[Rfam]
RNA sequence: AGCUUUGUGCAGUGGCAGUAUCGUAGCCAAUGAGGUUUAUCCGAGGCGCGAUUAUUGCUAAUUGAAAAAUUUAGUGCUUGUUUCAGUCACAGACAGUAACAAACAGUGUCAGAUGAGGUUGUUGUCCACAAAAAAAAUAAUUUG
Number, nucleotide and partner (000 for none) at each position: 001a000002g000003c000004u000005u000006u000007g000008u000009g000010c000011a000012g000013u000014g000015g000016c000017a000018g000019u000020a052021u051022c050023g049024u048025a000026g047027c046028c045029a000030a000031u000032g000033a000034g042035g041036u000037u000038u000039a000040u000041c035042c034043g000044a000045g028046g027047c026048g024049c023050g022051a021052u020053u000054a000055u000056u000057g000058c000059u000060a000061a000062u000063u000064g000065a000066a000067a000068a000069a000070u000071u000072u000073a000074g000075u000076g000077c000078u000079u000080g000081u000082u000083u000084c000085a000086g000087u116088c115089a114090c112091a000092g110093a109094c108095a107096g000097u105098a000099a000100c000101a000102a000103a000104c000105a097106g000107u095108g094109u093110c092111a000112g090113a000114u089115g088116a087117g000118g000119u000120u000121g000122u000123u000124g000125u000126c000127c000128a000129c144130a143131a142132a141133a000134a000135a000136a000137a000138u000139a000140a000141u132142u131143u130144g129
RNA: U4 spliceosomal RNA
Organism: Enhydra lutris